[Rfam]
RNA sequence: CCUCACAACUUUGAGGCCAUAGCAGGAAGGCUCACAUCAUUGCCCUGUCAGAUUCUAAUGAAUCUCUGAAUUCUGCU
Numbered sequence: 001c002c003u004c005a006c007a008a009c010u011u012u013g014a015g016g017c018c019a020u021a022g023c024a025g026g027a028a029g030g031c032u033c034a035c036a037u038c039a040u041u042g043c044c045c046u047g048u049c050a051g052a053u054u055c056u057a058a059u060g061a062a063u064c065u066c067u068g069a070a071u072u073c074u075g076c077u
Base pairs, nucleotide, nucleotide: 013045015044016043017042021077022076023075024074025073026072027071028040030038050065051064052063053062054061055060